RNA: Pseudomonas sRNA P1
RNA sequence: ACACCCGAUUUAUUGCUGUUAUGGGUUUCGGCCGAGCUUAGCGUUGUUCAUUUUUUUACACAACAGUUAUGUAAAAAAUCAAACACACCCCUCUGGACACCGCGCCGAGCAAGGCCGCGAGCGCCUUUUCACCCCCCCGCAACGCCCCAAAACUGGCCGCAAGGCCCUGUUUGAGGGCAU
Numbered sequence: 001a002c003a004c005c006c007g008a009u010u011u012a013u014u015g016c017u018g019u020u021a022u023g024g025g026u027u028u029c030g031g032c033c034g035a036g037c038u039u040a041g042c043g044u045u046g047u048u049c050a051u052u053u054u055u056u057u058a059c060a061c062a063a064c065a066g067u068u069a070u071g072u073a074a075a076a077a078a079u080c081a082a083a084c085a086c087a088c089c090c091c092u093c094u095g096g097a098c099a100c101c102g103c104g105c106c107g108a109g110c111a112a113g114g115c116c117g118c119g120a121g122c123g124c125c126u127u128u129u130c131a132c133c134c135c136c137c138c139g140c141a142a143c144g145c146c147c148c149a150a151a152a153c154u155g156g157c158c159g160c161a162a163g164g165c166c167c168u169g170u171u172u173g174a175g176g177g178c179a180u
Base pairs, nucleotide, nucleotide: 024101025100026099028097034093036091041089044085046084047083048082052078053077054076055075056074057073058072059071162180164178165177167175
Dot-bracket structure: .......................(((.(.....(.(....(..(.(((...((((((((...........))))))))...))))...).).)...).)))............................................................(.((.(.......).)).)